Record summary
Shown here is a 75-nucleotide RNA from Streptosporangium sandarakinum, a member of the family "6C RNA". It scores 62 bits against the family's covariance model. Rfam classes the family as a cis-regulatory element. For this family Rfam cites "Identification of 22 candidate structured RNAs in bacteria using the CMfinder comparative genomics pipeline" (Weinberg et al., Nucleic Acids Res, 2007).
RNA sequence: ACGGGACCGGCUCUACCCCCCCAGAGCCGGACCGGUCGGCGACCCCCGCUCUCCCCCCUGCGGGGGUCGCCACUU
Numbered sequence: 001a002c003g004g005g006a007c008c009g010g011c012u013c014u015a016c017c018c019c020c021c022c023a024g025a026g027c028c029g030g031a032c033c034g035g036u037c038g039g040c041g042a043c044c045c046c047c048g049c050u051c052u053c054c055c056c057c058c059u060g061c062g063g064g065g066g067u068c069g070c071c072a073c074u075u
Stems, first nucleotide, its partner, number of pairs: 002035001004033002007030007038071012
Lineage of the source: Bacteria > Bacillati > Actinomycetes > Streptosporangiaceae > Streptosporangium. Gene Ontology term of the family: sporulation.